Notes
This 106-nucleotide RNA from Vitis vinifera belongs to the Rfam family "Small nucleolar RNA snoR97". A reference for the family is Marker et al. (2002), "Experimental RNomics: identification of 140 candidates for small non-messenger RNAs in the plant Arabidopsis thaliana", Curr Biol.

[Rfam]
RNA sequence: CUUGCAUGGUGGGUAUGGAGGCUGAAAAACUCAGAAAGUUAGGUGUUGUAAUCAGCUUCUUCUCCCCUUUACCACGAGACUGGAGUUAAAUGCCAUCACUACAUUA
Numbered sequence: 001c002u003u004g005c006a007u008g009g010u011g012g013g014u015a016u017g018g019a020g021g022c023u024g025a026a027a028a029a030c031u032c033a034g035a036a037a038g039u040u041a042g043g044u045g046u047u048g049u050a051a052u053c054a055g056c057u058u059c060u061u062c063u064c065c066c067c068u069u070u071a072c073c074a075c076g077a078g079a080c081u082g083g084a085g086u087u088a089a090a091u092g093c094c095a096u097c098a099c100u101a102c103a104u105u106a
Stems, first nucleotide, its partner, number of pairs: 042100004047095002054087006061079004
The source organism's lineage runs through Eukaryota, Viridiplantae, Magnoliopsida, Vitales and Vitis.
The family's RNA type in Rfam is H/ACA-box small nucleolar RNA.